This 85-nucleotide sequence from Halalkalibacter okhensis belongs to the Rfam family "c-di-GMP-I riboswitch aptamer". The source organism's lineage runs through Bacteria, Bacillati, Bacilli, Caryophanales and Halalkalibacter. From the family's description: GEMM was predicted in a large-scale screen for bacterial structured RNA regulatory elements. Genes associated with GEMM are involved in a diverse array of functions, including chemotaxis regulation, signal transduction, secretion and chitin. The match comes from Rfam's covariance-model search (82 bits).
[Rfam]
RNA sequence: UGCAAGAAAAGGCAAACUAAACGAAAGCUUAGGACGCAAAGCCACAGGUCUAAGGUCGAGUGACUAUGACAGCUGGGUUGCCUCA
Numbered sequence: 001u002g003c004a005a006g007a008a009a010a011g012g013c014a015a016a017c018u019a020a021a022c023g024a025a026a027g028c029u030u031a032g033g034a035c036g037c038a039a040a041g042c043c044a045c046a047g048g049u050c051u052a053a054g055g056u057c058g059a060g061u062g063a064c065u066a067u068g069a070c071a072g073c074u075g076g077g078u079u080g081c082c083u084c085a
Base pairs, nucleotide, nucleotide: 012037013036017032018031019030020029022027040079041078042077043076045075046074047073048070049069050068055064056063057062